Record summary: Rfam assigns this 73-nucleotide RNA from Crocodylus porosus to the family "Mammalian CPEB3 ribozyme". It scores 50 bits against the family's covariance model.
Nucleotides: 073
Stems, first nucleotide, its partner, number of pairs: 011040002014037001017073007024036003045062003049058003
Number, partner (000 for none) and nucleotide at each position: 001000a002000c003000a004000g005000g006000u007000c008000u009000g010000a011040g012039g013000c014037c015000a016000c017073a018072g019071c020070a021069g022068a023067a024036g025035c026034a027000u028000u029000c030000a031000u032000g033000g034026u035025g036024c037014g038000a039012c040011c041000a042000u043000g044000u045062c046061a047060g048000g049058u050057u051056c052000c053000a054000a055000c056051g057050a058049a059000a060047c061046u062045g063000c064000a065000a066000a067023u068022u069021c070020u071019g072018c073017u

Rfam links the family to the GO term RNA nuclease activity. Rfam 15.1 lists 5,706 matches to the family in 197 species.